Notes:
Rfam assigns this 108-nucleotide RNA sequence from Agrobacterium sp. AGB01 to the family "Rhizobiales sRNA Atu_At1". The family has 33 seed sequences and 200 matches in Rfam 15.1. The family's RNA type in Rfam is small RNA. The match comes from Rfam's covariance-model search (106 bits).
RNA sequence: AAGCGCGCCGUGUCAAACGAACGUGACGGCGCUGAAGAACAUCAGGAUUUUUUCGUUUUCUCCUGAUGGCCAACGAAAAGGCAGACGAGCUUCUUACCCGUCCGGCGC
Numbered sequence: 001a002a003g004c005g006c007g008c009c010g011u012g013u014c015a016a017a018c019g020a021a022c023g024u025g026a027c028g029g030c031g032c033u034g035a036a037g038a039a040c041a042u043c044a045g046g047a048u049u050u051u052u053u054c055g056u057u058u059u060c061u062c063c064u065g066a067u068g069g070c071c072a073a074c075g076a077a078a079a080g081g082c083a084g085a086c087g088a089g090c091u092u093c094u095u096a097c098c099c100g101u102c103c104g105g106c107g108c
Base pairs, nucleotide, nucleotide: 006107007106008105009104011023012022013021025102026101027100028099029098034093035092036091037090040068041067042066043065044064045063046062069082070081071080